Plastid-psbA-2 3UTR RNA: a 61-nucleotide RNA sequence from Cicuta virosa.
Plastid psbA-2 is a non-coding RNA (ncRNA) present in plastids. It was identified in inverted repeat sequences in the 3 prime untranslate region (3UTR) of photosystem II quinone-binding protein (psbA).
The base pairs follow the family's consensus structure, which was predicted with LocARNA.
Its Rfam clan is "Plastid-psbA 3UTR RNA clan".
RNA sequence: AAAAAAGGAGCAAUAACCUCUUUCUUAUUUUAUCAAGAAGGGUGGUAUUGCUCCUUUUUUU
Number, nucleotide and partner (000 for none) at each position: 001a000002a059003a058004a057005a056006a055007g054008g053009a052010g051011c050012a049013a048014u047015a046016a043017c042018c041019u040020c000021u000022u000023u038024c037025u036026u035027a000028u000029u000030u000031u000032a000033u000034c000035a026036a025037g024038a023039a000040g019041g018042g017043u016044g000045g000046u015047a014048u013049u012050g011051c010052u009053c008054c007055u006056u005057u004058u003059u002060u000061u000